Record summary:
A member of the RNA family "Histone 3' UTR stem-loop" from Takifugu rubripes, 45 nucleotides long. The family's consensus secondary structure is taken from published work.

RNA sequence: ACAAAGGCUCUUUUAAGAGCCACAACAAGUCUGUUCAAGGAGCAU
Numbered sequence: 001a002c003a004a005a006g007g008c009u010c011u012u013u014u015a016a017g018a019g020c021c022a023c024a025a026c027a028a029g030u031c032u033g034u035u036c037a038a039g040g041a042g043c044a045u
Stems, first nucleotide, its partner, number of pairs: 006021006
Source information
Rfam describes the family as follows. The mRNAs of metazoan histone genes lack a poly-A tail. 3' end processing occurs at a site between a highly conserved stem-loop (modelled by this family) and a purine rich region around 20 nts downstream (the histone downstream element, or HDE). The stem-loop is bound by a 31 kDa stem-loop binding protein (SLBP - also termed the histone hairpin binding protein, or HBP). The family has 50 seed sequences and 44,596 matches in Rfam 15.1. NCBI's taxonomy places the organism under Eukaryota, Bilateria, Actinopterygii, Tetradontoidea, Takifugu. Its family is annotated with mRNA 3'-end processing by stem-loop binding and cleavage in the Gene Ontology.